[Rfam]
RNA sequence: UCAUCUUAAUAUACCCCUAACCGAGACUAAACGGGGAUAACAGUCUCUCAUAUCCACUAGUGAAGGGAUUAGUGGAAAUAACAGUACCG
Numbered sequence: 001u002c003a004u005c006u007u008a009a010u011a012u013a014c015c016c017c018u019a020a021c022c023g024a025g026a027c028u029a030a031a032c033g034g035g036g037a038u039a040a041c042a043g044u045c046u047c048u049c050a051u052a053u054c055c056a057c058u059a060g061u062g063a064a065g066g067g068a069u070u071a072g073u074g075g076a077a078a079u080a081a082c083a084g085u086a087c088c089g
Stems, first nucleotide, its partner, number of pairs: 014035003018031001023047005054075007
Shown here is an 89-nucleotide RNA sequence, a member of the family "PhotoRC-II RNA". The family's RNA type in Rfam is cis-regulatory element.